[Rfam]
RNA: Burkholderia RNA 7 (anti-hemB)
RNA sequence: UCCCCCGCUUUUCCUCCCUGAGCGGGCGCCUUGAUGUGUGACAGCAAAAGGCUUCCCACCCCGGCCCCCAAGGUGCCGGGGCUUUUUGC
Number, nucleotide and partner (000 for none) at each position: 001u000002c000003c000004c026005c025006c024007g023008c022009u021010u000011u000012u000013c000014c000015u000016c000017c000018c000019u000020g000021a009022g008023c007024g006025g005026g004027c000028g052029c051030c050031u049032u000033g000034a000035u046036g045037u044038g000039u000040g000041a000042c000043a000044g037045c036046a035047a000048a000049a031050g030051g029052c028053u000054u000055c000056c000057c000058a000059c081060c080061c079062c078063g077064g076065c075066c000067c000068c000069c000070a000071a000072g000073g000074u000075g065076c064077c063078g062079g061080g060081g059082c000083u000084u000085u000086u000087u000088g000089c000